[Rfam]
RNA sequence: UGGCCUGAGGUGAUGAUAAGAAUUCAUGUCUCUUCUCUGAGACUAACCGUGGAGAAAAUUCUGUGCCUUUCUGAUCAGGCCC
Number, nucleotide and partner (000 for none) at each position: 001u000002g081003g080004c079005c078006u000007g000008a000009g000010g000011u000012g000013a000014u000015g000016a000017u000018a000019a000020g000021a000022a000023u000024u000025c000026a000027u000028g000029u000030c000031u000032c000033u000034u000035c000036u000037c000038u000039g000040a000041g000042a000043c000044u000045a000046a000047c000048c000049g000050u000051g000052g000053a000054g000055a000056a000057a000058a000059u000060u000061c000062u000063g000064u000065g000066c000067c000068u000069u000070u000071c000072u000073g000074a000075u000076c000077a000078g005079g004080c003081c002082c000